[Rfam]
RNA sequence: AUAGUUGGAUCCCCAAUUUUUUGGAAUGCUCCAAAUUU
Numbered sequence: 001a002u003a004g005u006u007g008g009a010u011c012c013c014c015a016a017u018u019u020u021u022u023g024g025a026a027u028g029c030u031c032c033a034a035a036u037u038u
Stems, first nucleotide, its partner, number of pairs: 003018006020035006
Dot-bracket structure: ..((((((....)))))).((((((....))))))...